[Rfam]
RNA sequence: CUGAUCUCCGCGGAAGAGUCCGGCCAGGUCCCACGCGGUCCAGGCCGGCGCCGAAGGCGCAACCGCCCCGGAAACGCUCAGGCCCAAUGGACCGCGGAGAGCUG
Numbered sequence: 001c002u003g004a005u006c007u008c009c010g011c012g013g014a015a016g017a018g019u020c021c022g023g024c025c026a027g028g029u030c031c032c033a034c035g036c037g038g039u040c041c042a043g044g045c046c047g048g049c050g051c052c053g054a055a056g057g058c059g060c061a062a063c064c065g066c067c068c069c070g071g072a073a074a075c076g077c078u079c080a081g082g083c084c085c086a087a088u089g090g091a092c093c094g095c096g097g098a099g100a101g102c103u104g
Stems, first nucleotide, its partner, number of pairs: 006099008020048006050083003053079002057077003063071002
RNA: Glycine riboswitch aptamer
Organism: Alsobacter metallidurans